[Rfam]
RNA: Small nucleolar RNA SNORA61
Organism: Myotis brandtii
RNA sequence: ACCCUCCAGUUCCCUUUCCCAUCGGAUCUGAACACCGAUCUUGGUGGUCGUAGAGAGGAAAAGUAAUAGUGAAGCUGGCCUCAGUGCUUGUAGUCUGUAGGCUAGUUUCAAACAAGG
Dot-bracket structure: ..((((............(((((.((((........))))..))))).......))))................(((((((.................)))))))............